Rfam assigns this 79-nucleotide RNA from Aquarana catesbeiana to the family "Small nucleolar RNA SNORD69".
It scores 47 bits against the family's covariance model.
snoRNA HBII-210 belongs to the C/D family of snoRNAs. It is the human orthologue of the mouse MBII-210 and is predicted to guide the 2'O-ribose methylation of large 28S rRNA on residue G4464.
Rfam 15.1 lists 524 matches to the family in 496 species.

RNA sequence: AAUGAAGGUGUAUGAUGACAGAUUGGAACUGACAAUCCAAUGGAGGGUCCAUUCAAUCCAACUCUGAACCUUUUGCAUU
Numbered sequence: 001a002a003u004g005a006a007g008g009u010g011u012a013u014g015a016u017g018a019c020a021g022a023u024u025g026g027a028a029c030u031g032a033c034a035a036u037c038c039a040a041u042g043g044a045g046g047g048u049c050c051a052u053u054c055a056a057u058c059c060a061a062c063u064c065u066g067a068a069c070c071u072u073u074u075g076c077a078u079u
Stems, first nucleotide, its partner, number of pairs: 001079004005072005
Dot-bracket structure: (((((((((..........................................................)))))...))))